[Rfam]
RNA sequence: CGAGUUGGUCAGACAAUCGCUGGUUUAUUGAAGCCCUUAAUACCGAAAGGUUAGCCUGAAACAGGUGAUAAGCGGGACAAGUAGACGAGAGGAAAGUCCGGGCUACAUAGGGCAGAGUGCCGGAUAACGUCCGGGGGGCGCGAGCCUACGACAAGUGCAGCAGAGAGCAGACCGCCGUUUUUAAUAAAACGGUAAGGGUGAAAGGGUGCGGUAAGAGCGCACCGCGCGGGUGGUAACAUUCCGCGGCAAGGUAAACUCCACUCGUAGCAAGACCAAAUAGGAACUCAAUGAGUGUGCCCGCUCAGAGUUCGGGUAGGUUGCUUGAGCGACGGAGCAAUUCGUCGCCUAGAGGAAUGAUUGUCCGCGACAGAACCCGGCUUAUCGACCGACUCAUUCA
Numbered sequence: 001c002g003a004g005u006u007g008g009u010c011a012g013a014c015a016a017u018c019g020c021u022g023g024u025u026u027a028u029u030g031a032a033g034c035c036c037u038u039a040a041u042a043c044c045g046a047a048a049g050g051u052u053a054g055c056c057u058g059a060a061a062c063a064g065g066u067g068a069u070a071a072g073c074g075g076g077a078c079a080a081g082u083a084g085a086c087g088a089g090a091g092g093a094a095a096g097u098c099c100g101g102g103c104u105a106c107a108u109a110g111g112g113c114a115g116a117g118u119g120c121c122g123g124a125u126a127a128c129g130u131c132c133g134g135g136g137g138g139c140g141c142g143a144g145c146c147u148a149c150g151a152c153a154a155g156u157g158c159a160g161c162a163g164a165g166a167g168c169a170g171a172c173c174g175c176c177g178u179u180u181u182u183a184a185u186a187a188a189a190c191g192g193u194a195a196g197g198g199u200g201a202a203a204g205g206g207u208g209c210g211g212u213a214a215g216a217g218c219g220c221a222c223c224g225c226g227c228g229g230g231u232g233g234u235a236a237c238a239u240u241c242c243g244c245g246g247c248a249a250g251g252u253a254a255a256c257u258c259c260a261c262u263c264g265u266a267g268c269a270a271g272a273c274c275a276a277a278u279a280g281g282a283a284c285u286c287a288a289u290g291a292g293u294g295u296g297c298c299c300g301c302u303c304a305g306a307g308u309u310c311g312g313g314u315a316g317g318u319u320g321c322u323u324g325a326g327c328g329a330c331g332g333a334g335c336a337a338u339u340c341g342u343c344g345c346c347u348a349g350a351g352g353a354a355u356g357a358u359u360g361u362c363c364g365c366g367a368c369a370g371a372a373c374c375c376g377g378c379u380u381a382u383c384g385a386c387c388g389a390c391u392c393a394u395u396c397a
Stems, first nucleotide, its partner, number of pairs: 002392009011382001012362007020089002023086006094380003098377005103267004111298003115263005120134005135149001136147004150258002155256002157252002172197002174193008205223006224247001225245005230239003271319004281310006290303005326345008
Rfam assigns this 397-nucleotide RNA sequence from Actinobacillus succinogenes to the family "Bacterial RNase P class A".
By type it is a ribozyme.
Lineage of the source: Bacteria > Pseudomonadota > Pasteurellaceae > Actinobacillus > Actinobacillus succinogenes.
About the family: Ribonuclease P (RNase P) is a ubiquitous endoribonuclease, found in archaea, bacteria and eukarya as well as chloroplasts and mitochondria.
It is one of the family's seed sequences.